[Rfam]
RNA sequence: AAAGCAGGCCAGACCGUUGCUGGUACCGUAUCCGAAAGGUGGUACUGGAGGAAGGUCCGGACUGCACAGGGCAACGUAGGAGGUAAUACCUCUCCGCCGUGAGGCGAGGAUCAGAGCAACAGAGACGAGUCCUGCCGCUGAUGUGGCAGGGGUGAAACGGGCAAUCUCUACGUGCAGCAACACCAAAUAGGCCAGCAUUGAUGCGGCUCCGCGGAGCUGGCGGGUAGGUGGCAUUGAGCUGUUUCAGCGAUGGGCAGCCCAGAUGAAUAACGGUCACAUCAUGAGUCUCAUGAUGCACAGAAUCCGGCCUACAGGCCUGCUUUACAC
Numbered sequence: 001a002a003a004g005c006a007g008g009c010c011a012g013a014c015c016g017u018u019g020c021u022g023g024u025a026c027c028g029u030a031u032c033c034g035a036a037a038g039g040u041g042g043u044a045c046u047g048g049a050g051g052a053a054g055g056u057c058c059g060g061a062c063u064g065c066a067c068a069g070g071g072c073a074a075c076g077u078a079g080g081a082g083g084u085a086a087u088a089c090c091u092c093u094c095c096g097c098c099g100u101g102a103g104g105c106g107a108g109g110a111u112c113a114g115a116g117c118a119a120c121a122g123a124g125a126c127g128a129g130u131c132c133u134g135c136c137g138c139u140g141a142u143g144u145g146g147c148a149g150g151g152g153u154g155a156a157a158c159g160g161g162c163a164a165u166c167u168c169u170a171c172g173u174g175c176a177g178c179a180a181c182a183c184c185a186a187a188u189a190g191g192c193c194a195g196c197a198u199u200g201a202u203g204c205g206g207c208u209c210c211g212c213g214g215a216g217c218u219g220g221c222g223g224g225u226a227g228g229u230g231g232c233a234u235u236g237a238g239c240u241g242u243u244u245c246a247g248c249g250a251u252g253g254g255c256a257g258c259c260c261a262g263a264u265g266a267a268u269a270a271c272g273g274u275c276a277c278a279u280c281a282u283g284a285g286u287c288u289c290a291u292g293a294u295g296c297a298c299a300g301a302a303u304c305c306g307g308c309c310u311a312c313a314g315g316c317c318u319g320c321u322u323u324a325c326a327c
Stems, first nucleotide, its partner, number of pairs: 001323010012275007020048009053310003057307005062177004069209004074173005079093005094108001095106004109168002114166002116162002131151002134147005181230004191221006202213004238258004243254004
RNA: Bacterial RNase P class A